[Rfam]
RNA sequence: UUUUAUUAAGAAGCGCCUGGACUAUCUUUCGUACGAGAAAGAAGGAUAGUUGACGAGGAAGAGGUUCAUCGAAUGUCGGCGGAUGCCUCUCGGCUGCCCAUCACAGCUGUUACCCCACUUGUGAAAACUAAAAGGCGACUUUUAGCAUAAUCACGAUUGGGAUGAUGUAC
Dot-bracket structure: ...................((((((((.(............).))))))))........(((((....((((...))))......)))))((((((.......)))))).....(((.(((......(((((((....)))))))........))).)))..........